[Rfam]
RNA sequence: AAUUACAGUGACGACUUCACAAAUUCAAGCUCAACAGACCGGAUUGCAGGAAUUUCUCACUCUUGAGAUUUCUUUUGCGUGUCGAAAACCCCGCUGAACUGAGUAAUU
Numbered sequence: 001a002a003u004u005a006c007a008g009u010g011a012c013g014a015c016u017u018c019a020c021a022a023a024u025u026c027a028a029g030c031u032c033a034a035c036a037g038a039c040c041g042g043a044u045u046g047c048a049g050g051a052a053u054u055u056c057u058c059a060c061u062c063u064u065g066a067g068a069u070u071u072c073u074u075u076u077g078c079g080u081g082u083c084g085a086a087a088a089c090c091c092c093g094c095u096g097a098a099c100u101g102a103g104u105a106a107u108u
Stems, first nucleotide, its partner, number of pairs: 001108006

This 108-nucleotide sequence from Chenopodium quinoa belongs to the Rfam family "Small nucleolar RNA Z107/R87". The match comes from Rfam's covariance-model search (89 bits). Pairs were carried over by alignment from the consensus structure, which was predicted with RNAfold. On this family, see Barneche et al., J Mol Biol 2001: "Identification of 66 box C/D snoRNAs in Arabidopsis thaliana: extensive gene duplications generated multiple isoforms predicting new ribosomal RNA 2'-O-methylation sites". Lineage of the source: Eukaryota > Spermatophyta > Chenopodioideae > Atripliceae > Chenopodium.